RNA sequence: UUUCAGCAUAAGUAUGCCCCAUGCAAUAUUGGGGACAUACUUAUGCUAAAA
Numbered sequence: 001u002u003u004c005a006g007c008a009u010a011a012g013u014a015u016g017c018c019c020c021a022u023g024c025a026a027u028a029u030u031g032g033g034g035a036c037a038u039a040c041u042u043a044u045g046c047u048a049a050a051a
Stems, first nucleotide, its partner, number of pairs: 005047007013039003018034003021030001
Shown here is a 51-nucleotide RNA, a member of the family "mir-1302 microRNA precursor family". It is one of the family's seed sequences. The literature on the family includes a 2008 paper in Genome Res by Morin et al., "Application of massively parallel sequencing to microRNA profiling and discovery in human embryonic stem cells".